Background:
This 231-nucleotide RNA sequence from Trifolium subterraneum belongs to the Rfam family "MIR2655 microRNA precursor family". The base pairs follow the family's consensus structure, which was predicted with RNAalifold. Rfam 15.1 lists 892 matches to the family in 5 species. Gene Ontology terms of the family: miRNA-mediated post-transcriptional gene silencing and RISC complex.
[Rfam]
RNA sequence: UCCUUAUCUUUUAAAAAUUUCAAGUUGGUCUCUUAUCUUUAUUUUAGGUUUCAAGUUGGUCCUUUCCGUUAAAUUUGGACACGUGGCAAACUGAUUUGGACACGUGGCACACUUGAACAUGUGACACGUGUCCAGAAUUAAUUGUAACAAUAAAAAAAUUGACGGAAGGGACCAACUUGAAACCUAAAAAAAAGAUAAGGGACCAACUUGAAACUUUUAAAAGAUAAGGGA
Numbered sequence: 001u002c003c004u005u006a007u008c009u010u011u012u013a014a015a016a017a018u019u020u021c022a023a024g025u026u027g028g029u030c031u032c033u034u035a036u037c038u039u040u041a042u043u044u045u046a047g048g049u050u051u052c053a054a055g056u057u058g059g060u061c062c063u064u065u066c067c068g069u070u071a072a073a074u075u076u077g078g079a080c081a082c083g084u085g086g087c088a089a090a091c092u093g094a095u096u097u098g099g100a101c102a103c104g105u106g107g108c109a110c111a112c113u114u115g116a117a118c119a120u121g122u123g124a125c126a127c128g129u130g131u132c133c134a135g136a137a138u139u140a141a142u143u144g145u146a147a148c149a150a151u152a153a154a155a156a157a158a159u160u161g162a163c164g165g166a167a168g169g170g171a172c173c174a175a176c177u178u179g180a181a182a183c184c185u186a187a188a189a190a191a192a193a194g195a196u197a198a199g200g201g202a203c204c205a206a207c208u209u210g211a212a213a214c215u216u217u218u219a220a221a222a223g224a225u226a227a228g229g230g231a
Stems, first nucleotide, its partner, number of pairs: 002229007023208003027204003031200010042189002045186003

The match comes from Rfam's covariance-model search (126 bits).